[Rfam]
RNA sequence: UCAACAAGAAUCUUGCUUCAGGGGUUUACACACGGAGUACUUAGUUACUUAAAUAACCUCGGGAAGGUCUGAGAUAAAUUCACUAACCUUCCAGCCGAAGGCCUUCUUGACAAAGUUGGGCAGGAGAACCAGAAAUUGGUCCAGUUCUAAAAUUUUUGGGUCUGAGACGCCAUUGGCUGAGACAAUAAUUUUAGAAACUGUUGGAAUCUCCUGUGAUUCGCAUUUUUAGUUCAAUUUGCAAGGUUCUAGCUUUAUGUUAGAAUAACUCAAUUCAGACUAAUCUCUUGUUGA
Numbered sequence: 001u002c003a004a005c006a007a008g009a010a011u012c013u014u015g016c017u018u019c020a021g022g023g024g025u026u027u028a029c030a031c032a033c034g035g036a037g038u039a040c041u042u043a044g045u046u047a048c049u050u051a052a053a054u055a056a057c058c059u060c061g062g063g064a065a066g067g068u069c070u071g072a073g074a075u076a077a078a079u080u081c082a083c084u085a086a087c088c089u090u091c092c093a094g095c096c097g098a099a100g101g102c103c104u105u106c107u108u109g110a111c112a113a114a115g116u117u118g119g120g121c122a123g124g125a126g127a128a129c130c131a132g133a134a135a136u137u138g139g140u141c142c143a144g145u146u147c148u149a150a151a152a153u154u155u156u157u158g159g160g161u162c163u164g165a166g167a168c169g170c171c172a173u174u175g176g177c178u179g180a181g182a183c184a185a186u187a188a189u190u191u192u193a194g195a196a197a198c199u200g201u202u203g204g205a206a207u208c209u210c211c212u213g214u215g216a217u218u219c220g221c222a223u224u225u226u227u228a229g230u231u232c233a234a235u236u237u238g239c240a241a242g243g244u245u246c247u248a249g250c251u252u253u254a255u256g257u258u259a260g261a262a263u264a265a266c267u268c269a270a271u272u273c274a275g276a277c278u279a280a281u282c283u284c285u286u287g288u289u290g291a
Stems, first nucleotide, its partner, number of pairs: 001291004007285003012242005021060005035050005040044001069275005077218004087101005102119002106115002120214007140200001243263007
RNA: Nuclear RNase P
Organism: Cinara cedri